[Rfam]
RNA sequence: UCCUUCCUUGUCAUGGGGUGAGAAAGAGCUGCUCAGUGAACGCAUAGUGAGAGCAGCCCUGCUGACACCAUAACAACACUUAAGCAUCACCUGGGCCAUUGUCCAGAUACUGGUGCAAUUUUUGAAACC
Numbered sequence: 001u002c003c004u005u006c007c008u009u010g011u012c013a014u015g016g017g018g019u020g021a022g023a024a025a026g027a028g029c030u031g032c033u034c035a036g037u038g039a040a041c042g043c044a045u046a047g048u049g050a051g052a053g054c055a056g057c058c059c060u061g062c063u064g065a066c067a068c069c070a071u072a073a074c075a076a077c078a079c080u081u082a083a084g085c086a087u088c089a090c091c092u093g094g095g096c097c098a099u100u101g102u103c104c105a106g107a108u109a110c111u112g113g114u115g116c117a118a119u120u121u122u123u124g125a126a127a128c129c
Base pairs, nucleotide, nucleotide: 006018007017008016009015022062024060028057029056030055031054032053033052034051040048041047084116085115086114087113088112089111091106092105093104094103095102096101
Record summary: U4atac minor spliceosomal RNA: a 129-nucleotide RNA from Labrus bergylta. Rfam describes the family as follows. U4atac is an essential component of the minor U12-type spliceosome complex which is required for removal of the rarer class of eukaryotic introns (AT-AC, U12-type). NCBI's taxonomy places the organism under Eukaryota, Neopterygii, Osteoglossocephalai, Eurypterygia, Labrus. Clan: U4 clan. Rfam links the family to the GO terms mRNA 5'-splice site recognition, U4atac snRNP and spliceosomal tri-snRNP complex assembly. It scores 85 bits against the family's covariance model.